[Rfam]
RNA: MIR162_1 microRNA precursor family
RNA sequence: UGAGAAGUCACUGGAGGCAGCGGUUCAUCGAUCUUUUCCUGAAGACUUUUUUGUUUUACACGAAAAACACGAACCGAUCGAUAAACCUCUGCAUCCAGUGCUUCCCUU
Numbered sequence: 001u002g003a004g005a006a007g008u009c010a011c012u013g014g015a016g017g018c019a020g021c022g023g024u025u026c027a028u029c030g031a032u033c034u035u036u037u038c039c040u041g042a043a044g045a046c047u048u049u050u051u052u053g054u055u056u057u058a059c060a061c062g063a064a065a066a067a068c069a070c071g072a073a074c075c076g077a078u079c080g081a082u083a084a085a086c087c088u089c090u091g092c093a094u095c096c097a098g099u100g101c102u103u104c105c106c107u108u
Stems, first nucleotide, its partner, number of pairs: 013096003018091003022087004027082007036073003